[Rfam]
RNA sequence: UCCUGGAAAGAUCCCGCCCUGAGCAAAGUCGAAGGGUUGGACACCGAAGGGGACAAAUUCCGCGUAUGGGCGGAAUAAUCUCUCAGGUCAAAAGACAGGA
Numbered sequence: 001u002c003c004u005g006g007a008a009a010g011a012u013c014c015c016g017c018c019c020u021g022a023g024c025a026a027a028g029u030c031g032a033a034g035g036g037u038u039g040g041a042c043a044c045c046g047a048a049g050g051g052g053a054c055a056a057a058u059u060c061c062g063c064g065u066a067u068g069g070g071c072g073g074a075a076u077a078a079u080c081u082c083u084c085a086g087g088u089c090a091a092a093a094g095a096c097a098g099g100a
Stems, first nucleotide, its partner, number of pairs: 001100005012041003043088003046084002050082003058074003
Annotation
Glycine riboswitch aptamer: a 100-nucleotide sequence from a Syntrophaceae bacterium. Taxonomically the source falls in Syntrophaceae (Bacteria, Thermodesulfobacteriota, Syntrophia, Syntrophales). It scores 37 bits against the family's covariance model.